[Rfam]
RNA: Guanidine-I riboswitch aptamer
Organism: Gracilibacillus kekensis
RNA sequence: AAAAAAGUUUUCUAGGGUUCCGCAACAGCAAGUUGGUCUGGUCCGAGAGAAAACUCACAGUAUUGCUGUGACACGGAGGGACAAAAGCCUGGGAGAA
Numbered sequence: 001a002a003a004a005a006a007g008u009u010u011u012c013u014a015g016g017g018u019u020c021c022g023c024a025a026c027a028g029c030a031a032g033u034u035g036g037u038c039u040g041g042u043c044c045g046a047g048a049g050a051a052a053a054c055u056c057a058c059a060g061u062a063u064u065g066c067u068g069u070g071a072c073a074c075g076g077a078g079g080g081a082c083a084a085a086a087g088c089c090u091g092g093g094a095g096a097a
Stems, first nucleotide, its partner, number of pairs: 007054006015044002020041002022038001023035004056070005072092001074095001078090003